[Rfam]
RNA sequence: CAUUUCCAGACUGUGGUUUGGGCAGAUACUACAUUUUAGGAUCAGUAUUGCACAUUCCCCAGCCUGGAAA
Number, nucleotide and partner (000 for none) at each position: 001c000002a000003u070004u069005u068006c067007c000008a000009g064010a000011c000012u061013g060014u000015g058016g057017u000018u000019u054020g053021g000022g051023c000024a000025g049026a048027u047028a046029c045030u044031a000032c000033a000034u000035u000036u000037u000038a000039g000040g000041a000042u000043c000044a030045g029046u028047a027048u026049u025050g000051c022052a000053c020054a019055u000056u000057c016058c015059c000060c013061a012062g000063c000064c009065u000066g000067g006068a005069a004070a003
Rfam assigns this 70-nucleotide sequence from Drosophila ananassae to the family "mir-310 microRNA precursor family". The sequence is in the family's curated seed alignment. The family has 23 seed sequences and 60 matches in Rfam 15.1. Lineage of the source: Eukaryota > Opisthokonta > Pterygota > Drosophila > ananassae species complex. Gene Ontology terms of the family: RISC complex, cellular response to nitric oxide and dorsal closure.